[Rfam]
RNA sequence: UUGAAAGUUAUGUGGCGUUUUUAUAAGAUAUCCAGCCUAGUCUAUAGGAGGUUUUGAAAAUAAGGGAGCAAUAAUCAUUUUCUUGUUUUAUCAAGAGGGAGCUAUUGCUCCUUU
Numbered sequence: 001u002u003g004a005a006a007g008u009u010a011u012g013u014g015g016c017g018u019u020u021u022u023a024u025a026a027g028a029u030a031u032c033c034a035g036c037c038u039a040g041u042c043u044a045u046a047g048g049a050g051g052u053u054u055u056g057a058a059a060a061u062a063a064g065g066g067a068g069c070a071a072u073a074a075u076c077a078u079u080u081u082c083u084u085g086u087u088u089u090a091u092c093a094a095g096a097g098g099g100a101g102c103u104a105u106u107g108c109u110c111c112u113u114u
Stems, first nucleotide, its partner, number of pairs: 002023007062114012078099001080097005
Dot-bracket structure: .(((((((........)))))))......................................((((((((((((....(.(((((........))))).)...))))))))))))
RNA: Plastid-psbA-1 3UTR RNA
Organism: Capsicum baccatum